[Rfam]
RNA sequence: AUAAUGAGACUUCUGUCAAUUCGAAAUUGAGCGUUGAAAGCGUCGCACGUCAGAUGGCAGUCCGAGCGUAUUGCUGGGAAGGUGGAAUCCCUAUGG
Numbered sequence: 001a002u003a004a005u006g007a008g009a010c011u012u013c014u015g016u017c018a019a020u021u022c023g024a025a026a027u028u029g030a031g032c033g034u035u036g037a038a039a040g041c042g043u044c045g046c047a048c049g050u051c052a053g054a055u056g057g058c059a060g061u062c063c064g065a066g067c068g069u070a071u072u073g074c075u076g077g078g079a080a081g082g083u084g085g086a087a088u089c090c091c092u093a094u095g096g
Stems, first nucleotide, its partner, number of pairs: 012093001013060006061079003065075003080092003
Rfam assigns this 96-nucleotide RNA sequence to the family "pemK RNA". The sequence is in the family's curated seed alignment. By type it is a cis-regulatory element.